MIR398 microRNA precursor family: a 99-nucleotide sequence from Ziziphus jujuba. Lineage of the source: Eukaryota > Streptophyta > Euphyllophyta > Rosales > Ziziphus jujuba. For this family Rfam cites "Computational identification of plant microRNAs and their targets, including a stress-induced miRNA" (Jones-Rhoades and Bartel, Mol Cell, 2004). A search with the family's covariance model found it, with a score of 65 bits.
[Rfam]
RNA sequence: GGUUCACCCGGAGGUGUGGCCUGAGAACAUAGGUGGGUUUGCUGGCGCGAACUCGCUCAUGUACCUUUUGUGUUCUCAGGUCACCCCUUUGGGACACCC
Numbered sequence: 001g002g003u004u005c006a007c008c009c010g011g012a013g014g015u016g017u018g019g020c021c022u023g024a025g026a027a028c029a030u031a032g033g034u035g036g037g038u039u040u041g042c043u044g045g046c047g048c049g050a051a052c053u054c055g056c057u058c059a060u061g062u063a064c065c066u067u068u069u070g071u072g073u074u075c076u077c078a079g080g081u082c083a084c085c086c087c088u089u090u091g092g093g094a095c096a097c098c099c
Stems, first nucleotide, its partner, number of pairs: 007093002011089004016084004023077010